[Rfam]
RNA: c-di-GMP-I riboswitch aptamer
Organism: Bacillus sp. AFS040349
RNA sequence: AUAUAUUUCUGGCAAACUAUGUGAAAGCAUAGGACGCAAAGCCACGGGUCUACGCACAGCAUGAUAGCCGGGUUACAAAU
Dot-bracket structure: ...........((...((((((....))))))...))..((((.((((((....(...)...)))..)))))))......